[Rfam]
RNA: Small nucleolar RNA Z152/R70/R12/
RNA sequence: UGUGCAAUGAUGAGAUGAAAACACUUUGGUGUUUAUAGGCAGUGGACGUGACCAUUAGGUCUCGCCGUGAGCUCUUUUCUUUAACGACUUCUCCUUCCACUGAGCACU
Numbered sequence: 001u002g003u004g005c006a007a008u009g010a011u012g013a014g015a016u017g018a019a020a021a022c023a024c025u026u027u028g029g030u031g032u033u034u035a036u037a038g039g040c041a042g043u044g045g046a047c048g049u050g051a052c053c054a055u056u057a058g059g060u061c062u063c064g065c066c067g068u069g070a071g072c073u074c075u076u077u078u079c080u081u082u083a084a085c086g087a088c089u090u091c092u093c094c095u096u097c098c099a100c101u102g103a104g105c106a107c108u
Stems, first nucleotide, its partner, number of pairs: 002107004